RNA sequence: CAGGAAGCAGCUAGGGUUCCGAUUCGGUCUUUGCCGAAUGACUGGUCCGAGAGCGCGCGGCCUUGCCAUAUGCAAGGUUACACGGCGGGACAAAAGCCCGGGAGAU
Numbered sequence: 001c002a003g004g005a006a007g008c009a010g011c012u013a014g015g016g017u018u019c020c021g022a023u024u025c026g027g028u029c030u031u032u033g034c035c036g037a038a039u040g041a042c043u044g045g046u047c048c049g050a051g052a053g054c055g056c057g058c059g060g061c062c063u064u065g066c067c068a069u070a071u072g073c074a075a076g077g078u079u080a081c082a083c084g085g086c087g088g089g090a091c092a093a094a095a096g097c098c099c100g101g102g103a104g105a106u
Stems, first nucleotide, its partner, number of pairs: 007058002010054002014048002019045002021042001022039006059079008081101001083104001087099003
Dot-bracket structure: ......((.((..((...(((((((((......))))))..).)).))....))..))((((((((.....)))))))).(.[...(((.......))).)..]..
RNA: Guanidine-I riboswitch aptamer